Source information:
The record is a 186-nucleotide sequence from Brevibacillus borstelensis, which matches "Lysine riboswitch aptamer" in Rfam.
[Rfam]
RNA sequence: CAGUGAGGUAGAGGUUGCGAUAUUUAACAGUCCUUGGCGGAGUUCGAGAAAGCGUUGAUGCCAGGGAGAAGGAAAUGUCGCCGAAGCUUGCAAUAUUUCUCGGUAUUGCAUUGCUGGGUCUGCAGUUAAGAGCUGCAGGACUGUCUCAAUAAAUGACCCGAUUUAUUGAGUUGUGCUAUCUCAUCU
Numbered sequence: 001c002a003g004u005g006a007g008g009u010a011g012a013g014g015u016u017g018c019g020a021u022a023u024u025u026a027a028c029a030g031u032c033c034u035u036g037g038c039g040g041a042g043u044u045c046g047a048g049a050a051a052g053c054g055u056u057g058a059u060g061c062c063a064g065g066g067a068g069a070a071g072g073a074a075a076u077g078u079c080g081c082c083g084a085a086g087c088u089u090g091c092a093a094u095a096u097u098u099c100u101c102g103g104u105a106u107u108g109c110a111u112u113g114c115u116g117g118g119u120c121u122g123c124a125g126u127u128a129a130g131a132g133c134u135g136c137a138g139g140a141c142u143g144u145c146u147c148a149a150u151a152a153a154u155g156a157c158c159c160g161a162u163u164u165a166u167u168g169a170g171u172u173g174u175g176c177u178a179u180c181u182c183a184u185c186u
Base pairs, nucleotide, nucleotide: 006181007180008179009178010177011176017081018080019079020078021077022076023075024074025073032066033065034064035063036062037061038060039059085115086114087113089110090109091108092107093106094105095104116142117141119139120138121137122136123135124134125133126132145170146169147168148167149166150165151164152163153162